The record is a 53-nucleotide sequence from Halanaeroarchaeum sulfurireducens, which matches "leuA-Halobacteria RNA" in Rfam. The base pairs follow the family's consensus structure, which is taken from published work. Lineage of the source: Archaea > Methanobacteriati > Halobacteria > Halobacteriales > Halanaeroarchaeum. It is annotated as a cis-regulatory element.

[Rfam]
RNA sequence: GACGACGGAGGAUAGAGGAAGUCGCACCGACGCGGCUGAUCGAGAAAUUCUCC
Numbered sequence: 001g002a003c004g005a006c007g008g009a010g011g012a013u014a015g016a017g018g019a020a021g022u023c024g025c026a027c028c029g030a031c032g033c034g035g036c037u038g039a040u041c042g043a044g045a046a047a048u049u050c051u052c053c
Stems, first nucleotide, its partner, number of pairs: 020037006